[Rfam]
RNA sequence: UGGGAAAGACCAGAGGUACUCGUUGAUUCACCGCCACCAAACUACACGGCACAGCACGCCGAAAAAGGUAGUUUGGAGGUUGUAAAACAGCAAGUAACU
Numbered sequence: 001u002g003g004g005a006a007a008g009a010c011c012a013g014a015g016g017u018a019c020u021c022g023u024u025g026a027u028u029c030a031c032c033g034c035c036a037c038c039a040a041a042c043u044a045c046a047c048g049g050c051a052c053a054g055c056a057c058g059c060c061g062a063a064a065a066a067g068g069u070a071g072u073u074u075g076g077a078g079g080u081u082g083u084a085a086a087a088c089a090g091c092a093a094g095u096a097a098c099u
Base pairs, nucleotide, nucleotide: 017096018095019094020093022091023090024089025088027086028085030083031082033080034079035078040074041072042071043070044069045068048060049059050058